[Rfam]
Nucleotides: 131
Stems, first nucleotide, its partner, number of pairs: 007118004011081004016075001017034005042073004087112004093106004
Number, partner (000 for none) and nucleotide at each position: 001000a002000a003000g004000g005000c006000a007118c008117c009116c010115a011081g012080g013079g014078g015000g016075u017034g018033g019032c020031u021030g022000a023000a024000c025000c026000g027000a028000a029000u030021c031020a032019g033018c034017c035000u036000g037000a038000g039000a040000u041000u042073u043072g044071c045070c046000u047000a048000g049000u050000u051000a052000a053000a054000u055000g056000u057000u058000c059000u060000u061000u062000g063000g064000a065000a066000c067000g068000g069000u070045g071044g072043c073042a074000u075016a076000a077000a078014c079013c080012c081011c082000a083000u084000g085000a086000a087112c088111c089110u090109g091000a092000u093106c094105c095104g096103g097000u098000u099000a100000a101000c102000a103096c104095c105094g106093g107000c108000g109090u110089a111088g112087g113000g114000a115010u116009g117008g118007g119000a120000a121000u122000a123000a124000c125000g126000u127000u128000c129000u130000a131000c
A member of the RNA family "TPP riboswitch aptamer (THI element)" from Arenicella xantha, 131 nucleotides long.
The source organism's lineage runs through Bacteria, Pseudomonadati, Gammaproteobacteria, Arenicellales and Arenicella.
Vitamin B(1) in its active form thiamin pyrophosphate (TPP) is an essential coenzyme that is synthesised by coupling of pyrimidine and thiazole moieties in bacteria.
It scores 74 bits against the family's covariance model.